RNA: mir-155 microRNA precursor family
RNA sequence: GGGUUAAUGCUAAUCGUGAUAGGGGUUGUGUCAUUAAAAACACCUAUACAAUUAGCAUUAUCUC
Dot-bracket structure: ....((((((((((.....((((.(((...........))).))))....))))))))))....
Numbered sequence: 001g002g003g004u005u006a007a008u009g010c011u012a013a014u015c016g017u018g019a020u021a022g023g024g025g026u027u028g029u030g031u032c033a034u035u036a037a038a039a040a041c042a043c044c045u046a047u048a049c050a051a052u053u054a055g056c057a058u059u060a061u062c063u064c
Stems, first nucleotide, its partner, number of pairs: 005060010020046004025041003